[Rfam]
RNA sequence: UAAUGUAGUGUUAAACGACCUAAGACAGUAAGUGGCUAAGCCUUAAUUUCUUACCGAGGAAGUUCCAAUUAUUAGGAAUUUAUCUCUAUGUCUGGGUGGCAUAGAGAUUUUUUAUUAAAUCU
Numbered sequence: 001u002a003a004u005g006u007a008g009u010g011u012u013a014a015a016c017g018a019c020c021u022a023a024g025a026c027a028g029u030a031a032g033u034g035g036c037u038a039a040g041c042c043u044u045a046a047u048u049u050c051u052u053a054c055c056g057a058g059g060a061a062g063u064u065c066c067a068a069u070u071a072u073u074a075g076g077a078a079u080u081u082a083u084c085u086c087u088a089u090g091u092c093u094g095g096g097u098g099g100c101a102u103a104g105a106g107a108u109u110u111u112u113u114a115u116u117a118a119a120u121c122u
Base pairs, nucleotide, nucleotide: 028054029053030052031051032050034042035041036040083107084106085105086104087103088102089101090100091099092098
This 122-nucleotide sequence from Facklamia hominis belongs to the Rfam family "Ribosomal protein L10 leader". The family's consensus secondary structure was predicted with CMfinder. NCBI's taxonomy places the organism under Bacteria, Bacillota, Bacilli, Lactobacillales, Facklamia hominis. Rfam classes the family as a cis-regulatory leader. This family is a putative r-protein leader autoregulatory structure found in B. subtilis and other low-GC Gram-positive bacteria. It is located in the 5' untranslated regions of mRNAs encoding ribosomal proteins L10 and L12 (rplJ-rplL). A reference for the family is Zengel and Lindahl (1994), "Diverse mechanisms for regulating ribosomal protein synthesis in Escherichia coli", Prog Nucleic Acid Res Mol Biol.